[Rfam]
A member of the RNA family "Bacterial large signal recognition particle RNA" from bacterium HR12, 266 nucleotides long. Rfam links the family to the GO terms SRP-dependent cotranslational protein targeting to membrane, signal sequence recognition and signal recognition particle, plasma membrane targeting. The signal recognition particle (SRP) is a universally conserved ribonucleoprotein involved in the co-translational targeting of proteins to membranes. Pairs were carried over by alignment from the consensus structure, which is taken from published work.
RNA sequence: CCGUGCCAGGCGGGGAGCUAGCGGUGCCCUGUACCCGCAAUCCGCUCCAGCGGGGCUGGAUCCCCGCCCGAGGCCCGUCGGGUCCGCGUUCGCUCCCGGCACGGGGCGUUGAAGGUCGGGUCCCGCGCGACGUCAUCCCGUGAACCCGGUCAGGUCCGGAAGGAAGCAGCCGUAAGCGGGGCGUGGCGGGUGCCGCGGGCGUGCCUGACCGGAGCCACCGGCCGGUGACGCGACCAGGUCCGGCGCGGUCGACGGCGGGUGCACGG
Numbered sequence: 001c002c003g004u005g006c007c008a009g010g011c012g013g014g015g016a017g018c019u020a021g022c023g024g025u026g027c028c029c030u031g032u033a034c035c036c037g038c039a040a041u042c043c044g045c046u047c048c049a050g051c052g053g054g055g056c057u058g059g060a061u062c063c064c065c066g067c068c069c070g071a072g073g074c075c076c077g078u079c080g081g082g083u084c085c086g087c088g089u090u091c092g093c094u095c096c097c098g099g100c101a102c103g104g105g106g107c108g109u110u111g112a113a114g115g116u117c118g119g120g121u122c123c124c125g126c127g128c129g130a131c132g133u134c135a136u137c138c139c140g141u142g143a144a145c146c147c148g149g150u151c152a153g154g155u156c157c158g159g160a161a162g163g164a165a166g167c168a169g170c171c172g173u174a175a176g177c178g179g180g181g182c183g184u185g186g187c188g189g190g191u192g193c194c195g196c197g198g199g200c201g202u203g204c205c206u207g208a209c210c211g212g213a214g215c216c217a218c219c220g221g222c223c224g225g226u227g228a229c230g231c232g233a234c235c236a237g238g239u240c241c242g243g244c245g246c247g248g249u250c251g252a253c254g255g256c257g258g259g260u261g262c263a264c265g266g
Stems, first nucleotide, its partner, number of pairs: 001266006009057003012030004017025003034054005063259006072250004078243007086235001091230002096225005103219002105216003114210008122199006128190001131188005136181006147172004155164003
Dot-bracket structure: ((((((..(((((((.(((...))).))))...(((((...........)))))))).....((((((...((((..(((((((.(....((...(((((..(((((......(((((((((((((((..(((((((((((.....((((....(((....)))....))))...))))))..))))).)...))))))...))))))))...))).)).)))))...))....).)))))))...))))...)))))).))))))